[Rfam]
RNA sequence: UCCAGUGGCAGUAAGCUGUCCAGGGCAGUACCAUGCCCCUGACAGUGUUACACUGCUGGGAGAUAAAAUACUGGCCAUUUCAUCUGUCUGUCAUCACACUUUUGAAGGCAGCUGCCACCAGUGUGGAACAGUGUUGUGCUUCCCUGAGUGUGCACUAAGCAUUUGCCUUCACUUUUUAAUGCUAGUCUGGAACCAUGCAUG
Numbered sequence: 001u002c003c004a005g006u007g008g009c010a011g012u013a014a015g016c017u018g019u020c021c022a023g024g025g026c027a028g029u030a031c032c033a034u035g036c037c038c039c040u041g042a043c044a045g046u047g048u049u050a051c052a053c054u055g056c057u058g059g060g061a062g063a064u065a066a067a068a069u070a071c072u073g074g075c076c077a078u079u080u081c082a083u084c085u086g087u088c089u090g091u092c093a094u095c096a097c098a099c100u101u102u103u104g105a106a107g108g109c110a111g112c113u114g115c116c117a118c119c120a121g122u123g124u125g126g127a128a129c130a131g132u133g134u135u136g137u138g139c140u141u142c143c144c145u146g147a148g149u150g151u152g153c154a155c156u157a158a159g160c161a162u163u164u165g166c167c168u169u170c171a172c173u174u175u176u177u178a179a180u181g182c183u184a185g186u187c188u189g190g191a192a193c194c195a196u197g198c199a200u201g
Stems, first nucleotide, its partner, number of pairs: 001060008011051002015046006023037002068134006075125001084121003089117002092114002095111001097108001099107003136196003140192004152182003156178004161173001

Rfam assigns this 201-nucleotide RNA sequence from Mauremys mutica to the family "Small nucleolar RNA SNORA74". Rfam links the family to the GO terms RNA processing and nucleolus. Rfam's curators write: U19 belongs to the H/ACA class of snoRNAs. snoRNAs bind a number of proteins (including dyskerin, Gar1p and Nop10p in the case of the H/ACA class) to form snoRNP complexes. This class are thought to guide the sites of modification of uridines to pseudouridines by forming direct base pairing interactions with substrate RNAs. The base pairs follow the family's consensus structure, which was predicted with PFOLD. Clan: SNORA74 clan.